This 179-nucleotide sequence from Ectothiorhodospiraceae bacterium AqS1 belongs to the Rfam family "Ruegeria cis52 sRNA". For this family Rfam cites "Experimental Identification of Small Non-Coding RNAs in the Model Marine Bacterium Ruegeria pomeroyi DSS-3" (Rivers et al., Front Microbiol, 2016). Pairs were carried over by alignment from the consensus structure, which was predicted with RNAfold.
RNA sequence: UGCGCAAGGCGUGCCCGAUCACGAUAUUGUGGAAUGCGACCCCUUUGAGGCGCGCGGUGCGGAUGUACUGGGUGGUCAUGACCUCGGCCAUCGAAGCCCGGGUCAUGCGCGCGAUAUAGCCGGUGCCGUAAAGGGCGAUGGUGAAUACCGGCAGGAAGAAGUUCUCGAGAGUCGGGUUU
Numbered sequence: 001u002g003c004g005c006a007a008g009g010c011g012u013g014c015c016c017g018a019u020c021a022c023g024a025u026a027u028u029g030u031g032g033a034a035u036g037c038g039a040c041c042c043c044u045u046u047g048a049g050g051c052g053c054g055c056g057g058u059g060c061g062g063a064u065g066u067a068c069u070g071g072g073u074g075g076u077c078a079u080g081a082c083c084u085c086g087g088c089c090a091u092c093g094a095a096g097c098c099c100g101g102g103u104c105a106u107g108c109g110c111g112c113g114a115u116a117u118a119g120c121c122g123g124u125g126c127c128g129u130a131a132a133g134g135g136c137g138a139u140g141g142u143g144a145a146u147a148c149c150g151g152c153a154g155g156a157a158g159a160a161g162u163u164c165u166c167g168a169g170a171g172u173c174g175g176g177u178u179u
Base pairs, nucleotide, nucleotide: 005140006139009136010135012133016128017127020125021124028123031120040111042109046105047104048103051100052099054097055075057073058072060070061069062068082096084094085093086092145179147177148175149174150173151172152171154165155164156163157162